[Rfam]
The record is a 69-nucleotide RNA from Albula glossodonta, which matches "Small nucleolar RNA SNORD42" in Rfam.
RNA sequence: GUGCAAAUGAUGGAAACUAUCAUUGCAUCUGAUUUAAAUAUGAUGCUUUCAAAGGAACCACUGAUGCAU
Numbered sequence: 001g002u003g004c005a006a007a008u009g010a011u012g013g014a015a016a017c018u019a020u021c022a023u024u025g026c027a028u029c030u031g032a033u034u035u036a037a038a039u040a041u042g043a044u045g046c047u048u049u050c051a052a053a054g055g056a057a058c059c060a061c062u063g064a065u066g067c068a069u
Base pairs, nucleotide, nucleotide: 001069002068003067004066005065
The family has 7 seed sequences and 848 matches in Rfam 15.1. It scores 51 bits against the family's covariance model. NCBI's taxonomy places the organism under Eukaryota, Opisthokonta, Eumetazoa, Elopocephalai, Albula. The base pairs follow the family's consensus structure, which was predicted with PFOLD.